[Rfam]
RNA sequence: GGUUGCAACAUCCCCGUGGGUUGGGCGGCAUCGCAGCGAAUCCACUGCAACC
Numbered sequence: 001g002g003u004u005g006c007a008a009c010a011u012c013c014c015c016g017u018g019g020g021u022u023g024g025g026c027g028g029c030a031u032c033g034c035a036g037c038g039a040a041u042c043c044a045c046u047g048c049a050a051c052c
Stems, first nucleotide, its partner, number of pairs: 001052007013038001014036001016045007023037001025034003
Dot-bracket structure: (((((((.....[[.((((((((.(((....))).])]))))))))))))))